[Rfam]
RNA sequence: UUUUUAGUAUAACUAUAUCUCAUGCAAUAUUUGAGACAUACCUAUAUUAAAA
Numbered sequence: 001u002u003u004u005u006a007g008u009a010u011a012a013c014u015a016u017a018u019c020u021c022a023u024g025c026a027a028u029a030u031u032u033g034a035g036a037c038a039u040a041c042c043u044a045u046a047u048u049a050a051a052a
Base pairs, nucleotide, nucleotide: 006048007047008046009045010044011043014040015039016038018036019035020034021033022031
mir-1302 microRNA precursor family: a 52-nucleotide RNA from Molossus molossus. It scores 64 bits against the family's covariance model. A reference for the family is Morin et al. (2008), "Application of massively parallel sequencing to microRNA profiling and discovery in human embryonic stem cells", Genome Res. Rfam 15.1 lists 16,160 matches to the family in 135 species. Taxonomically the source falls in Molossus (Eukaryota, Teleostomi, Yangochiroptera, Molossidae).